[Rfam]
RNA sequence: AGUGAGGGUAGAGGUGCAAAUGUCAUCAGUAAGCUUGCGGGAGGAGAAUGAGCUCUAUUGAACCAAGCUAAAAGGGGUAUUUGCCGAAGCUAAUGGAUCCUCAUUUCCCAUUAGCUGGGACUGUGCUAAAUAAGUACAGUACUGUCAUAUAGCUGCGUUGCUAUAUGGAGGGCUAUCUCACAU
Number, nucleotide and partner (000 for none) at each position: 001a000002g000003u000004g000005a000006g178007g177008g176009u175010a174011g173012a000013g000014g000015u000016g084017c083018a082019a081020a080021u079022g078023u077024c076025a000026u000027c000028a000029g000030u000031a000032a069033g068034c067035u066036u065037g064038c000039g000040g000041g000042a000043g000044g000045a000046g000047a000048a000049u000050g000051a000052g000053c000054u000055c000056u000057a000058u000059u000060g000061a000062a000063c000064c037065a036066a035067g034068c033069u032070a000071a000072a000073a000074g000075g000076g024077g023078u022079a021080u020081u019082u018083g017084c016085c000086g000087a000088a116089g115090c114091u113092a112093a111094u110095g109096g108097a000098u000099c000100c000101u000102c000103a000104u000105u000106u000107c000108c096109c095110a094111u093112u092113a091114g090115c089116u088117g143118g142119g000120a140121c139122u138123g137124u136125g135126c134127u133128a000129a000130a000131u000132a000133a127134g126135u125136a124137c123138a122139g121140u120141a000142c118143u117144g000145u168146c167147a166148u165149a164150u163151a162152g000153c000154u000155g000156c000157g000158u000159u000160g000161c000162u151163a150164u149165a148166u147167g146168g145169a000170g000171g000172g000173c011174u010175a009176u008177c007178u006179c000180a000181c000182a000183u000
RNA: Lysine riboswitch aptamer
Organism: Halalkalibacter nanhaiisediminis